[Rfam]
RNA sequence: AAACUACUAGACGAAGUGAGUGGGUUGAGGCCAAUGCUUGUAACUUGGCCAGACCCAGGAAAGUCCCCGGGCCCUAAACUGCAGAGAUGCAGGCUCGGAAUCGAGCAAAGCUUAAGGCCGUUGGGGUCUGUCCUUACCUAUGGUAAGGCGGGGCAGAGACAAGUGUGGAGCCCUAAUGACCUUAAUGCCGAAGCAACUUGGCCGAUGUUCACAGUUAUUCACUUGGUCCCUAAGCUUGGACUAACUGAACGGGGCUUAUGAUCUAGUAGUA
Number, nucleotide and partner (000 for none) at each position: 001a000002a000003a270004c269005u268006a267007c266008u265009a264010g263011a262012c000013g000014a224015a223016g222017u221018g220019a219020g000021u057022g056023g055024g054025u053026u052027g000028a000029g000030g000031c000032c000033a000034a000035u000036g000037c000038u000039u000040g000041u000042a000043a000044c000045u000046u000047g000048g000049c000050c000051a000052g026053a025054c024055c023056c022057a021058g000059g000060a000061a257062a256063g255064u000065c254066c253067c252068c251069g000070g000071g000072c000073c000074c000075u000076a000077a000078a000079c000080u091081g090082c089083a088084g000085a000086g000087a000088u083089g082090c081091a080092g000093g106094c105095u104096c103097g102098g000099a000100a000101u000102c097103g096104a095105g094106c093107a000108a000109a000110g000111c000112u000113u000114a000115a000116g000117g000118c000119c000120g000121u000122u000123g000124g000125g000126g000127u000128c000129u000130g000131u000132c000133c193134u000135u000136a000137c000138c000139u184140a183141u000142g181143g180144u000145a000146a000147g000148g177149c000150g000151g173152g172153g171154c170155a000156g000157a000158g000159a000160c000161a166162a000163g000164u000165g000166u161167g000168g000169a000170g154171c153172c152173c151174u000175a000176a000177u148178g000179a000180c143181c142182u000183u140184a139185a000186u000187g000188c000189c000190g000191a000192a000193g133194c000195a000196a000197c000198u000199u000200g000201g000202c000203c000204g000205a000206u000207g000208u000209u000210c000211a000212c000213a000214g000215u000216u000217a000218u000219u019220c018221a017222c016223u015224u014225g000226g241227u240228c239229c238230c000231u000232a000233a000234g000235c000236u000237u000238g229239g228240a227241c226242u000243a000244a000245c000246u000247g000248a000249a000250c000251g068252g067253g066254g065255c063256u062257u061258a000259u000260g000261a000262u011263c010264u009265a008266g007267u006268a005269g004270u003271a000
Source information:
The family of this 271-nucleotide RNA sequence from Gossypium raimondii is "RNase MRP". A search with the family's covariance model found it, with a score of 72 bits. Gene Ontology terms of the family: rRNA processing, ribonuclease MRP activity and ribonuclease MRP complex. The base pairs follow the family's consensus structure, which is taken from published work. RNase MRP is an enzymatically active ribonucleoprotein with two distinct roles in eukaryotes. In mitochondria it plays a direct role in the initiation of mitochondrial DNA replication. In the nucleus it is involved in precursor rRNA processing, where it cleaves the internal transcribed spacer 1 between 18S and 5.8S rRNAs. Despite distinct functions, RNase MRP has been shown to be evolutionarily related to RNase P. Like eukaryotic RNase P, RNase MRP is not catalytically active without associated protein subunits. Rfam classes the family as a ribozyme.